The family of this 121-nucleotide sequence from Salinibacillus xinjiangensis is "ylbH leader". This family is a putative regulatory RNA structure that is found upstream of the ylbH gene in B. subtilis and related low GC Gram-positive bacteria. It is annotated as a cis-regulatory leader. Rfam links the family to the GO term regulation of gene expression.
[Rfam]
RNA sequence: CAAAAAAAACGCCUGCAGAAAAAAUCUGCAGGCUCUCUUUGUUAUCAUUAACAAAGAGACAAAAAAGGGAGAGGAGAAACCGGAGGAAGAACUUAUGGGGAAACGUAAGCCUUCUCCGUUU
Numbered sequence: 001c002a003a004a005a006a007a008a009a010c011g012c013c014u015g016c017a018g019a020a021a022a023a024a025u026c027u028g029c030a031g032g033c034u035c036u037c038u039u040u041g042u043u044a045u046c047a048u049u050a051a052c053a054a055a056g057a058g059a060c061a062a063a064a065a066a067g068g069g070a071g072a073g074g075a076g077a078a079a080c081c082g083g084a085g086g087a088a089g090a091a092c093u094u095a096u097g098g099g100g101a102a103a104c105g106u107a108a109g110c111c112u113u114c115u116c117c118g119u120u121u
Stems, first nucleotide, its partner, number of pairs: 011033009036069005045057002048054002081118004086114004092109004